Background
This 128-nucleotide RNA from Salmo salar belongs to the Rfam family "Small nucleolar RNA SNORA55". The family's RNA type in Rfam is H/ACA-box small nucleolar RNA. ACA55 is a member of the H/ACA class of snoRNA that guide the sites of modification of uridines to pseudouridines.
[Rfam]
RNA sequence: GCACCCCAGCAAACCCUGUCUUCCUGUCUGUGUUGGCCAUGGGCAAUGAUGGUGCCAUAGUGACUCAAAGUAUAUCCAGACGGCCCUCCCUCUCUAUUGGAGUCUGUCUCUACAACUUUGACACAAAA
Dot-bracket structure: (((((........(((((.((.............)).)).))).......))))).........((((((.......((((((.(..((.........)).).))))))......)))))).......